[Rfam]
RNA sequence: GAUAGCUCCACACCAUUCCCAGGUCAAUGUUGGGCUCAACCUUGCGAACUGCGCCAAUGGCAGUGUCAUAGAUUCCGUGGUGCUGAGCCCAUUCAACAAAAGCAAUUGCACCUAGGCCUAGAAAGAUGAGAUGGUGGCCAAGAAUAAAAGUGAGCUUUUUGGGAUCAUCCCA
Numbered sequence: 001g002a003u004a005g006c007u008c009c010a011c012a013c014c015a016u017u018c019c020c021a022g023g024u025c026a027a028u029g030u031u032g033g034g035c036u037c038a039a040c041c042u043u044g045c046g047a048a049c050u051g052c053g054c055c056a057a058u059g060g061c062a063g064u065g066u067c068a069u070a071g072a073u074u075c076c077g078u079g080g081u082g083c084u085g086a087g088c089c090c091a092u093u094c095a096a097c098a099a100a101a102g103c104a105a106u107u108g109c110a111c112c113u114a115g116g117c118c119u120a121g122a123a124a125g126a127u128g129a130g131a132u133g134g135u136g137g138c139c140a141a142g143a144a145u146a147a148a149a150g151u152g153a154g155c156u157u158u159u160u161g162g163g164a165u166c167a168u169c170c171c172a
Base pairs, nucleotide, nucleotide: 130169131168132167133166134165135164138163139162141160142159
Dot-bracket structure: .................................................................................................................................((((((..((.((................)).))))))))...
Antisense RNA which regulates isiA expression: a 172-nucleotide RNA from Synechococcus sp. CC9311. NCBI's taxonomy places the organism under Bacteria, Bacillati, Synechococcales, Synechococcaceae, Synechococcus. A reference for the family is Duhring et al. (2006), "An internal antisense RNA regulates expression of the photosynthesis gene isiA", Proc Natl Acad Sci U S A.